[Rfam]
RNA: mir-395 microRNA precursor family
Organism: Arabis alpina
RNA sequence: AUGUCUCCUAGAGUUCCUCUGAGCACUUCAUUGGGAUUGCAAAUUUCACCCACUGAAGUGUUUGGGGGAACUCCCGGACCCAU
Numbered sequence: 001a002u003g004u005c006u007c008c009u010a011g012a013g014u015u016c017c018u019c020u021g022a023g024c025a026c027u028u029c030a031u032u033g034g035g036a037u038u039g040c041a042a043a044u045u046u047c048a049c050c051c052a053c054u055g056a057a058g059u060g061u062u063u064g065g066g067g068g069a070a071c072u073c074c075c076g077g078a079c080c081c082a083u
Stems, first nucleotide, its partner, number of pairs: 006078003011073010022063002024060007032052004
Dot-bracket structure: .....(((..((((((((((.(((((((((.((((.............)))).))))))).))))))))))))..))).....